[Rfam]
RNA sequence: ACUACAAACCGGGCUAUCGCCUCCCGAUUUAUCGGGAAGAGGAAAGUCCGGACAGCAUAGGGCAAUGUACCGGUGAAUAGCCGGGUCCUUUUCCGCAGGGGAGAGGAACAGACAGUGCCACAGAAAAUUACAGCUUUCAUCCCGGCCAUUGCGGUUGGGGUUUGUCUUCCCGGCUCAGCCGGGAGGAGAGUGAUGGUGAAAACGUGGGGUAAGAGCCCACGGCUUUGCCGGGUGACCGGCGGGGCGGGUAAACCUUGCAUGCUGAAAUGCCAUGUAUACCAGCGUUGAAGAGCGGCUCGUUCGAUCCUUCCCGAUUUAUCGGGAAGAACGUUGGGUGGGUAGGCAGAACGAUCCAGUCAGUAAUGGCUGGGCAAGAUAAAUGAUAGCCUCCCGGUAAUUAUCGGGAUACAGAAUCCGGCUUACAGGUUUGUAGUUAAU
Numbered sequence: 001a002c003u004a005c006a007a008a009c010c011g012g013g014c015u016a017u018c019g020c021c022u023c024c025c026g027a028u029u030u031a032u033c034g035g036g037a038a039g040a041g042g043a044a045a046g047u048c049c050g051g052a053c054a055g056c057a058u059a060g061g062g063c064a065a066u067g068u069a070c071c072g073g074u075g076a077a078u079a080g081c082c083g084g085g086u087c088c089u090u091u092u093c094c095g096c097a098g099g100g101g102a103g104a105g106g107a108a109c110a111g112a113c114a115g116u117g118c119c120a121c122a123g124a125a126a127a128u129u130a131c132a133g134c135u136u137u138c139a140u141c142c143c144g145g146c147c148a149u150u151g152c153g154g155u156u157g158g159g160g161u162u163u164g165u166c167u168u169c170c171c172g173g174c175u176c177a178g179c180c181g182g183g184a185g186g187a188g189a190g191u192g193a194u195g196g197u198g199a200a201a202a203c204g205u206g207g208g209g210u211a212a213g214a215g216c217c218c219a220c221g222g223c224u225u226u227g228c229c230g231g232g233u234g235a236c237c238g239g240c241g242g243g244g245c246g247g248g249u250a251a252a253c254c255u256u257g258c259a260u261g262c263u264g265a266a267a268u269g270c271c272a273u274g275u276a277u278a279c280c281a282g283c284g285u286u287g288a289a290g291a292g293c294g295g296c297u298c299g300u301u302c303g304a305u306c307c308u309u310c311c312c313g314a315u316u317u318a319u320c321g322g323g324a325a326g327a328a329c330g331u332u333g334g335g336u337g338g339g340u341a342g343g344c345a346g347a348a349c350g351a352u353c354c355a356g357u358c359a360g361u362a363a364u365g366g367c368u369g370g371g372c373a374a375g376a377u378a379a380a381u382g383a384u385a386g387c388c389u390c391c392c393g394g395u396a397a398u399u400a401u402c403g404g405g406a407u408a409c410a411g412a413a414u415c416c417g418g419c420u421u422a423c424a425g426g427u428u429u430g431u432a433g434u435u436a437a438u
Base pairs, nucleotide, nucleotide: 001434002433003432004431005430006429007428008427009426010425011423012388013387014386015385016384017383018382020039022037023036024035025034026033027032044421045420046419048418049417050416051415052414053264054263055262056261065260066259067258068257069256070084071083072082073081074080085109086107087106088105089104090103091102092101093100094099110255111254115253116252117249118248119247131195132194133191134190135189136188137187138186140184141183142182143181144180145179146178203221204220205219206218207217208216224243225242226241227240228239229238230237231236268345269344270343271342278336279335280334282332352371353370354369355368356367357366358365359364

This 438-nucleotide sequence from Niastella vici belongs to the Rfam family "Bacterial RNase P class A". The source organism's lineage runs through Bacteria, Pseudomonadati, Chitinophagia, Chitinophagales and Niastella. The match comes from Rfam's covariance-model search (235 bits). Rfam describes the family as follows. Ribonuclease P (RNase P) is a ubiquitous endoribonuclease, found in archaea, bacteria and eukarya as well as chloroplasts and mitochondria. Its best characterised activity is the generation of mature 5'-ends of tRNAs by cleaving the 5'-leader elements of precursor-tRNAs. Cellular RNase Ps are ribonucleoproteins. RNA from bacterial RNase Ps retains its catalytic activity in the absence of the protein subunit, i.e. it is a ribozyme. Gene Ontology terms of the family: tRNA processing, ribonuclease P activity and dimeric ribonuclease P complex.